[Rfam]
RNA sequence: CCCUCUGGCUGAGUUAGUGAUUGGCUAGAGUUAAUUUAAUUUUUUCUGGAGAUAAAUAUGUCACUAAGUAAUGAACAAAAAGCAGCUAUCGUAGCUGAAUACAGCCGUGGUGAA
Numbered sequence: 001c002c003c004u005c006u007g008g009c010u011g012a013g014u015u016a017g018u019g020a021u022u023g024g025c026u027a028g029a030g031u032u033a034a035u036u037u038a039a040u041u042u043u044u045u046c047u048g049g050a051g052a053u054a055a056a057u058a059u060g061u062c063a064c065u066a067a068g069u070a071a072u073g074a075a076c077a078a079a080a081a082g083c084a085g086c087u088a089u090c091g092u093a094g095c096u097g098a099a100u101a102c103a104g105c106c107g108u109g110g111u112g113a114a
Stems, first nucleotide, its partner, number of pairs: 007026006045068001047066003051062001

Record summary
A member of the RNA family "Ribosomal S15 leader" from Shewanella sp. P1-14-1, 114 nucleotides long. The organism belongs to Shewanella, within Bacteria. The match comes from Rfam's covariance-model search (93 bits). The base pairs follow the family's consensus structure, which is taken from published work. For this family Rfam cites "Pseudoknot and translational control in the expression of the S15 ribosomal protein" (Benard et al., Biochimie, 1996). Its family is annotated with regulation of translation, ncRNA-mediated in the Gene Ontology. The family is grouped with related families in Rfam's "Ribosomal Protein S15 Leader clan". The E. coli Ribosomal S15 gene 5' UTR can form two alternative structures. One that is a series of three hairpins, The other includes a pseudoknot. Rfam classes the family as a cis-regulatory leader.